[Rfam]
RNA sequence: CCCAAACUAGCCACUUGUCAUUUUCUAAUUGGUUCUUAUAAAAUUUUAACACACUAAGAACCAAUUAGAAAAUAACAAGUUGCUAGUUUUGG
Numbered sequence: 001c002c003c004a005a006a007c008u009a010g011c012c013a014c015u016u017g018u019c020a021u022u023u024u025c026u027a028a029u030u031g032g033u034u035c036u037u038a039u040a041a042a043a044u045u046u047u048a049a050c051a052c053a054c055u056a057a058g059a060a061c062c063a064a065u066u067a068g069a070a071a072a073u074a075a076c077a078a079g080u081u082g083c084u085a086g087u088u089u090u091g092g
Base pairs, nucleotide, nucleotide: 002091004089005088006087007086008085009084010083011082013080014079015078016077017076018075020073021072022071023070024069025068026067027066028065029064030063031062032061033060034059035058036057037056038055
The family of this 92-nucleotide RNA sequence from Prunus persica is "MIR6288 microRNA precursor family". Lineage of the source: Eukaryota > Tracheophyta > Spermatophyta > rosids > Prunus.